L17 ribosomal protein downstream element: a 68-nucleotide sequence from Catellicoccus marimammalium. Pairs were carried over by alignment from the consensus structure, which is taken from published work. A search with the family's covariance model found it, with a score of 58 bits. Rfam classes the family as a cis-regulatory element. The source organism's lineage runs through Bacteria, Bacillati, Bacilli, Catellicoccus and Catellicoccus marimammalium.
RNA sequence: UGAGUGUUAUGAUGAUGGAGAAAUCCAAGUCUAGCUCUUGCCUUUCCACCUAGAACAAUCUAGGUGGA
Numbered sequence: 001u002g003a004g005u006g007u008u009a010u011g012a013u014g015a016u017g018g019a020g021a022a023a024u025c026c027a028a029g030u031c032u033a034g035c036u037c038u039u040g041c042c043u044u045u046c047c048a049c050c051u052a053g054a055a056c057a058a059u060c061u062a063g064g065u066g067g068a
Stems, first nucleotide, its partner, number of pairs: 002037004011031003017026003045068009